[Rfam]
RNA sequence: UGGGGAACACUUAGAGCCCCCACGGACGUAGUGUUAAUAGUCGCUGUCUUUGGCCGGGCACGACGGUUAGUGAAUC
Numbered sequence: 001u002g003g004g005g006a007a008c009a010c011u012u013a014g015a016g017c018c019c020c021c022a023c024g025g026a027c028g029u030a031g032u033g034u035u036a037a038u039a040g041u042c043g044c045u046g047u048c049u050u051u052g053g054c055c056g057g058g059c060a061c062g063a064c065g066g067u068u069a070g071u072g073a074a075u076c
Stems, first nucleotide, its partner, number of pairs: 001022005034070005040064003045060005
The record is a 76-nucleotide RNA, which matches "L13-Bacteroidia ribosomal protein leader" in Rfam.
The literature on the family includes a 2020 paper in BMC Microbiol by Eckert and Weinberg, "Discovery of 20 novel ribosomal leader candidates in bacteria and archaea".
Pairs were carried over by alignment from the consensus structure, which is taken from published work.
It is one of the family's seed sequences.